[Rfam]
Notes
Rfam assigns this 207-nucleotide RNA sequence from Erysipelothrix sp. HDW6A to the family "T-box leader". Rfam's curators write: Uncharged tRNA acts as the effector for transcription antitermination of genes in the T-box leader family. For this family Rfam cites "Interaction between the acceptor end of tRNA and the T box stimulates antitermination in the Bacillus subtilis tyrS gene: a new role for the discriminator base" (Grundy et al., J Bacteriol, 1994). The family's RNA type in Rfam is cis-regulatory leader. The match comes from Rfam's covariance-model search (152 bits). The family's consensus secondary structure is taken from published work.
RNA sequence: AGGAAAGCAAUGAUAGGAAAUAGUAGUCGUGGUUACUUAUAUAGAGAGCUAAUGGUUGGUGGAAAUUAGUUAAGUGAAAUGAUGAACUCAUCCUUGAGCCAAAUUCAUGAAAAUUAGAGUAGUGAAUUUCGUUUCUCACGUUACGAGAUUGAGAGCUUAUCAAACUGAUAGGAAUAAAGGUGGUACCGCGAUAGAUUCGUCCUUUGU
Numbered sequence: 001a002g003g004a005a006a007g008c009a010a011u012g013a014u015a016g017g018a019a020a021u022a023g024u025a026g027u028c029g030u031g032g033u034u035a036c037u038u039a040u041a042u043a044g045a046g047a048g049c050u051a052a053u054g055g056u057u058g059g060u061g062g063a064a065a066u067u068a069g070u071u072a073a074g075u076g077a078a079a080u081g082a083u084g085a086a087c088u089c090a091u092c093c094u095u096g097a098g099c100c101a102a103a104u105u106c107a108u109g110a111a112a113a114u115u116a117g118a119g120u121a122g123u124g125a126a127u128u129u130c131g132u133u134u135c136u137c138a139c140g141u142u143a144c145g146a147g148a149u150u151g152a153g154a155g156c157u158u159a160u161c162a163a164a165c166u167g168a169u170a171g172g173a174a175u176a177a178a179g180g181u182g183g184u185a186c187c188g189c190g191a192u193a194g195a196u197u198c199g200u201c202c203u204u205u206g207u
Stems, first nucleotide, its partner, number of pairs: 007099002015094004026083005037073003048070006102128007130140003156172007177204004188200004